RNA sequence: UGGCGCCCCAACGGGGGCCUGGACGAGGGACUCCGUGAGGAAGAGGAUGCAAAGGGACCGUCGACCGGGGCUAACGACAGACAAAAGGUAGUCAAACUCUUUCCCGAUCACGCGCGGAACCUGCGCGUCAAAAUCGAAGGUAUCGACGCAUCUGAAAUGGGAAAGAAUAACCAACAAUCAAUAUAGUAGGAAAUAAAAGAUGCUUUAAAGAUACGAGCGAGUAAAAGGUUAAAGGUAAUGAUUGUUUAAUUUUUGAUUUGUAAAAAGAACUGCCCU
Numbered sequence: 001u002g003g004c005g006c007c008c009c010a011a012c013g014g015g016g017g018c019c020u021g022g023a024c025g026a027g028g029g030a031c032u033c034c035g036u037g038a039g040g041a042a043g044a045g046g047a048u049g050c051a052a053a054g055g056g057a058c059c060g061u062c063g064a065c066c067g068g069g070g071c072u073a074a075c076g077a078c079a080g081a082c083a084a085a086a087g088g089u090a091g092u093c094a095a096a097c098u099c100u101u102u103c104c105c106g107a108u109c110a111c112g113c114g115c116g117g118a119a120c121c122u123g124c125g126c127g128u129c130a131a132a133a134u135c136g137a138a139g140g141u142a143u144c145g146a147c148g149c150a151u152c153u154g155a156a157a158u159g160g161g162a163a164a165g166a167a168u169a170a171c172c173a174a175c176a177a178u179c180a181a182u183a184u185a186g187u188a189g190g191a192a193a194u195a196a197a198a199g200a201u202g203c204u205u206u207a208a209a210g211a212u213a214c215g216a217g218c219g220a221g222u223a224a225a226a227g228g229u230u231a232a233a234g235g236u237a238a239u240g241a242u243u244g245u246u247u248a249a250u251u252u253u254u255g256a257u258u259u260g261u262a263a264a265a266a267g268a269a270c271u272g273c274c275c276u
Stems, first nucleotide, its partner, number of pairs: 006029003013024001034046001036044001098140003102137002107134001108132001112128005151161004168207003172202002214255004219251001221250001227243005265276001267274001
Overview: The record is a 276-nucleotide RNA sequence from Macaca nemestrina, which matches "Mason-Pfizer monkey virus packaging signal" in Rfam. It scores 81 bits against the family's covariance model. Rfam describes the family as follows. This family represents a group of sequences that are related to the Mason-Pfizer monkey virus (MPMV) packaging signal. Rfam classes the family as a cis-regulatory element.